[Rfam]
RNA sequence: CGGCGGGACACCCCUCCCCAACGAGGGGCGCAUAUCUGGAAGGGUAUUCAGA
Numbered sequence: 001c002g003g004c005g006g007g008a009c010a011c012c013c014c015u016c017c018c019c020a021a022c023g024a025g026g027g028g029c030g031c032a033u034a035u036c037u038g039g040a041a042g043g044g045u046a047u048u049c050a051g052a
Stems, first nucleotide, its partner, number of pairs: 011028006032047006
Dot-bracket structure: ..........((((((......))))))...((((((....)))))).....
This 52-nucleotide RNA from Rhodosalinus halophilus belongs to the Rfam family "serC leader". The literature on the family includes a 2005 paper in Genome Biol by Corbino et al., "Evidence for a second class of S-adenosylmethionine riboswitches and other regulatory RNA motifs in alpha-proteobacteria". The organism belongs to Rhodosalinus, within Bacteria. Rfam describes the family as follows. This family is a putative regulatory RNA structure that is found upstream of the serC-serA operon in some alpha-proteobacteria. The final stem of the structure overlaps the ribosome binding site of the serC reading frame. It is annotated as a cis-regulatory leader.